[Rfam]
RNA sequence: AAUGAGUUGUUUUGUCGCUUUUCAUUAUAGGUCAUAUGGGACUUUUUUUCUACACAAAAUAGGCUCCAUAAUAUCCAUAGGGGGGUUACCCACUACAAAUAUUAUA
Numbered sequence: 001a002a003u004g005a006g007u008u009g010u011u012u013u014g015u016c017g018c019u020u021u022u023c024a025u026u027a028u029a030g031g032u033c034a035u036a037u038g039g040g041a042c043u044u045u046u047u048u049u050c051u052a053c054a055c056a057a058a059a060u061a062g063g064c065u066c067c068a069u070a071a072u073a074u075c076c077a078u079a080g081g082g083g084g085g086u087u088a089c090c091c092a093c094u095a096c097a098a099a100u101a102u103u104a105u106a
Base pairs, nucleotide, nucleotide: 001026002025003024004023005022006021009018010017029044030043031042032041033040068105069104070103071102072101073100074099078095079094080093082091083090
Dot-bracket structure: ((((((..((......))..))))))..(((((......))))).......................(((((((...(((.((......)).)))...))))))).
A member of the RNA family "Streptococcus RNA 266" from Levilactobacillus bambusae, 106 nucleotides long. Lineage of the source: Bacteria > Bacillati > Bacilli > Lactobacillaceae > Levilactobacillus. By type it is a small RNA.